[Rfam]
This 47-nucleotide RNA from Olea europaea belongs to the Rfam family "Plastid-ccsA-ndhD-2 3UTR RNA". The family's consensus secondary structure was predicted with LocARNA. It scores 54 bits against the family's covariance model. By type it is a cis-regulatory element. The organism belongs to Olea europaea, within Eukaryota. Rfam's curators write: Plastid ccsA-ndhD-2 is a non-coding RNA (ncRNA) recognised in plastids. Rfam 15.1 lists 875 matches to the family in 517 species.
RNA sequence: CUGAUGAGAACCCUGUGAAUCAAAUAUUGUAGUGAUUCACAGGGUUC
Numbered sequence: 001c002u003g004a005u006g007a008g009a010a011c012c013c014u015g016u017g018a019a020u021c022a023a024a025u026a027u028u029g030u031a032g033u034g035a036u037u038c039a040c041a042g043g044g045u046u047c
Stems, first nucleotide, its partner, number of pairs: 008047015
Dot-bracket structure: .......(((((((((((((((..........)))))))))))))))